Rfam assigns this 34-nucleotide RNA from Phascolarctos cinereus to the family "Iron response element I". Rfam 15.1 lists 6,829 matches to the family in 599 species. The base pairs follow the family's consensus structure, which is taken from published work. NCBI's taxonomy places the organism under Eukaryota, Opisthokonta, Gnathostomata, Amniota, Phascolarctos. For this family Rfam cites "Structure of dual function iron regulatory protein 1 complexed with ferritin IRE-RNA" (Walden et al., Science, 2006). It is annotated as a cis-regulatory element. The match comes from Rfam's covariance-model search (36 bits). Rfam links the family to the GO term response to iron ion.

RNA sequence: AGUUUCCUGCUUCAACAAUGCUUGAACAGAAUCU
Numbered sequence: 001a002g003u004u005u006c007c008u009g010c011u012u013c014a015a016c017a018a019u020g021c022u023u024g025a026a027c028a029g030a031a032u033c034u
Base pairs, nucleotide, nucleotide: 001034002033004031005030007029009027011026012025013024014023015022016020